[Rfam]
RNA: 6S / SsrS RNA
RNA sequence: CAAAUUCUGAAAUAUGCGUCAGGCUUUAAUUUGAACCUACAUUAAUUGAAAGGGAGUUCAACAUUUAGAUGCUUAUAUGUACCCUUUAAGACAUAGGAGUGAUAGCGGUAUCUGUGAGGACACCCACCUAUCGGGAGAUAGGUGUCAAAUGAAGUCAGCGGUAUUUUGGAUUUAAU
Numbered sequence: 001c002a003a004a005u006u007c008u009g010a011a012a013u014a015u016g017c018g019u020c021a022g023g024c025u026u027u028a029a030u031u032u033g034a035a036c037c038u039a040c041a042u043u044a045a046u047u048g049a050a051a052g053g054g055a056g057u058u059c060a061a062c063a064u065u066u067a068g069a070u071g072c073u074u075a076u077a078u079g080u081a082c083c084c085u086u087u088a089a090g091a092c093a094u095a096g097g098a099g100u101g102a103u104a105g106c107g108g109u110a111u112c113u114g115u116g117a118g119g120a121c122a123c124c125c126a127c128c129u130a131u132c133g134g135g136a137g138a139u140a141g142g143u144g145u146c147a148a149a150u151g152a153a154g155u156c157a158g159c160g161g162u163a164u165u166u167u168g169g170a171u172u173u174a175a176u
Base pairs, nucleotide, nucleotide: 003173004172006170007169008168009167010166011165012164013163014162015161017160018159019158032147033146034145035143036142037141052125053124054123056121057120058119059118063115066114067113068112069111070110071109072108